Rfam assigns this 76-nucleotide RNA from Pomacea canaliculata to the family "Small nucleolar RNA R38". Lineage of the source: Eukaryota > Spiralia > Gastropoda > Ampullarioidea > Pomacea. Pairs were carried over by alignment from the consensus structure, which was predicted with PFOLD. The family's RNA type in Rfam is C/D-box small nucleolar RNA. Its family is annotated with nucleolus and RNA processing in the Gene Ontology. Rfam describes the family as follows. snoR38 is a C/D box small nucleolar RNA conserved across yeast, human, Arabidopsis and rice. It is encoded in the intron of elongation factor-1 gamma in both pombe and cerevisiae. snoR38 guides the methylation of 2'-O-ribose sites in 28S rRNA. It scores 45 bits against the family's covariance model.

RNA sequence: GGUUGCCAGUGAUGAAUAAAGUUAUCCCUGUCAGAUGUGAAAUCUGUUGAUACAUGCACGUCAGACUGAGGCAGCC
Dot-bracket structure: (((((((..............................................................)))))))